[Rfam]
RNA sequence: AGCGCGACCGGGUCGACACCGCGGGUCACCACCAGAUAGUCGCGGAUCACCGUGCUGUGCCGCAUCUC
Numbered sequence: 001a002g003c004g005c006g007a008c009c010g011g012g013u014c015g016a017c018a019c020c021g022c023g024g025g026u027c028a029c030c031a032c033c034a035g036a037u038a039g040u041c042g043c044g045g046a047u048c049a050c051c052g053u054g055c056u057g058u059g060c061c062g063c064a065u066c067u068c
Stems, first nucleotide, its partner, number of pairs: 004063003008059001011030003015027003035056001037054002040052001042050001044048001
The record is a 68-nucleotide sequence from Nocardia asteroides, which matches "ASdes TB sRNA" in Rfam.
Pairs were carried over by alignment from the consensus structure, which is taken from published work.
The match comes from Rfam's covariance-model search (68 bits).
The family has 26 seed sequences and 1,192 matches in Rfam 15.1.
NCBI's taxonomy places the organism under Bacteria, Actinomycetota, Actinomycetes, Nocardia, Nocardia asteroides.